[Rfam]
This 130-nucleotide sequence from Streptomyces sp. QHH-9511 belongs to the Rfam family "Streptomyces RNA 5676". From the family's description: Identified by deep sequencing of transcriptome at the end of exponential growth phase. It is annotated as a small RNA.
RNA sequence: AGAUGAGAGAAACACCCCGCUCGCAGGGGACUGCGGGCGACACCAGGGCGGAGCCUCCCCAGCCCCGCCUUGGCCGUGCCCUCGCGCACACCACUGGAGCCUCCGGCUCCGGAACUCCUCACCGAUCGGA
Numbered sequence: 001a002g003a004u005g006a007g008a009g010a011a012a013c014a015c016c017c018c019g020c021u022c023g024c025a026g027g028g029g030a031c032u033g034c035g036g037g038c039g040a041c042a043c044c045a046g047g048g049c050g051g052a053g054c055c056u057c058c059c060c061a062g063c064c065c066c067g068c069c070u071u072g073g074c075c076g077u078g079c080c081c082u083c084g085c086g087c088a089c090a091c092c093a094c095u096g097g098a099g100c101c102u103c104c105g106g107c108u109c110c111g112g113a114a115c116u117c118c119u120c121a122c123c124g125a126u127c128g129g130a
Base pairs, nucleotide, nucleotide: 004121005120006119007118009117010116018039019038020037021036022035023034024033025032026031043073044072045071046070047069049067050066051065053063054062076089077088078087079086094112095111096110097109098108099107100106101105122129123128
A reference for the family is Vockenhuber et al. (2011), "Deep sequencing-based identification of small non-coding RNAs in Streptomyces coelicolor", RNA Biol.